[Rfam]
RNA sequence: AUAUUUGAACAGGGGAGCUUGUGUUUCAAGCUGAGAGGAAGUAAUGAACUUCGACCCUUAAACCUGAUUUGGAUAAUGCCAACGUAGGAAGUGAUUAGAAGUUGAUC
Numbered sequence: 001a002u003a004u005u006u007g008a009a010c011a012g013g014g015g016a017g018c019u020u021g022u023g024u025u026u027c028a029a030g031c032u033g034a035g036a037g038g039a040a041g042u043a044a045u046g047a048a049c050u051u052c053g054a055c056c057c058u059u060a061a062a063c064c065u066g067a068u069u070u071g072g073a074u075a076a077u078g079c080c081a082a083c084g085u086a087g088g089a090a091g092u093g094a095u096u097a098g099a100a101g102u103u104g105a106u107c
Stems, first nucleotide, its partner, number of pairs: 009092002011058004017031005038052005063088004069082004
Dot-bracket structure: ........((((((..(((((.....)))))......(((((.....)))))..))))....((((..((((......))))..))))..))...............
This 107-nucleotide sequence from [Clostridium] fimetarium belongs to the Rfam family "TPP riboswitch aptamer (THI element)". A search with the family's covariance model found it, with a score of 71 bits. NCBI's taxonomy places the organism under Bacteria, Bacillati, Clostridia, Lachnospiraceae, Lachnoclostridium.